[Rfam]
RNA sequence: GUGCUCCCUUAGAGCUGCUUGUGCUCUAAGGGGCAACACAGGAGGGAAUAACAUUCCUCUCUUAAACCCAGAGCUGAGGCUAAAAACUCUCCUCUGGAUCCUGUCGGGAGGCACACUG
Numbered sequence: 001g002u003g004c005u006c007c008c009u010u011a012g013a014g015c016u017g018c019u020u021g022u023g024c025u026c027u028a029a030g031g032g033g034c035a036a037c038a039c040a041g042g043a044g045g046g047a048a049u050a051a052c053a054u055u056c057c058u059c060u061c062u063u064a065a066a067c068c069c070a071g072a073g074c075u076g077a078g079g080c081u082a083a084a085a086a087c088u089c090u091c092c093u094c095u096g097g098a099u100c101c102u103g104u105c106g107g108g109a110g111g112c113a114c115a116c117u118g
Stems, first nucleotide, its partner, number of pairs: 002048001004046003008042003014037001016035003020030001057110005068097006076089003081085001
RNA: Small nucleolar RNA SNORA26